[Rfam]
RNA sequence: UCAGUACGUUUAAGAUAAGCAGGCAAUAAAAAAGUGUUAAAAACAUCCACAAUGGUGGGCUUUUUUUUGUUGUGUUUAUUUUACGUAUUAUGACAUGGAUAGGGGGGAGUGUAGCUAUUUGAUGCUAUGCGUUUUUUCUCUAUGUCUUUUUAACGUUGGUAUGCAGACUAAAGAUUCCAUUGCGGAUUUUAGUCUGCAUUUUUUAU
Numbered sequence: 001u002c003a004g005u006a007c008g009u010u011u012a013a014g015a016u017a018a019g020c021a022g023g024c025a026a027u028a029a030a031a032a033a034g035u036g037u038u039a040a041a042a043a044c045a046u047c048c049a050c051a052a053u054g055g056u057g058g059g060c061u062u063u064u065u066u067u068u069g070u071u072g073u074g075u076u077u078a079u080u081u082u083a084c085g086u087a088u089u090a091u092g093a094c095a096u097g098g099a100u101a102g103g104g105g106g107g108a109g110u111g112u113a114g115c116u117a118u119u120u121g122a123u124g125c126u127a128u129g130c131g132u133u134u135u136u137u138c139u140c141u142a143u144g145u146c147u148u149u150u151u152a153a154c155g156u157u158g159g160u161a162u163g164c165a166g167a168c169u170a171a172a173g174a175u176u177c178c179a180u181u182g183c184g185g186a187u188u189u190u191a192g193u194c195u196g197c198a199u200u201u202u203u204u205a206u
Stems, first nucleotide, its partner, number of pairs: 003089007013081008023073011036060002044057004092146007101139006108133006161199006168192002171189003175185002178182001
The family of this 206-nucleotide RNA sequence from Clostridium sp. BL8 is "Enterococcus sRNA 1300".
The family's consensus secondary structure was predicted with RNAfold.
Expressed in mid and late exponential phases of growth. Expression remained uniform under daptomycin exposure.
A reference for the family is Sinel et al. (2017), "Small RNAs in vancomycin-resistant Enterococcus faecium involved in daptomycin response and resistance", Sci Rep.
A search with the family's covariance model found it, with a score of 78 bits.
Rfam 15.1 lists 115 matches to the family in 105 species.